[Rfam]
RNA sequence: GAGAAAUAAGGGCAAAUCUACUGAAAGGUAGAGACGCAAAGCUACAGGUCUAAGGCAGAUGGCGCUAUGACGGCUGGGUUGCAAAA
Numbered sequence: 001g002a003g004a005a006a007u008a009a010g011g012g013c014a015a016a017u018c019u020a021c022u023g024a025a026a027g028g029u030a031g032a033g034a035c036g037c038a039a040a041g042c043u044a045c046a047g048g049u050c051u052a053a054g055g056c057a058g059a060u061g062g063c064g065c066u067a068u069g070a071c072g073g074c075u076g077g078g079u080u081g082c083a084a085a086a
Stems, first nucleotide, its partner, number of pairs: 012037002017032006040080004045076003048071003055065002

Shown here is an 86-nucleotide RNA sequence from Lysinibacillus sphaericus, a member of the family "c-di-GMP-I riboswitch aptamer".
A search with the family's covariance model found it, with a score of 76 bits.
Taxonomically the source falls in Lysinibacillus (Bacteria, Bacillati, Bacilli, Bacillaceae).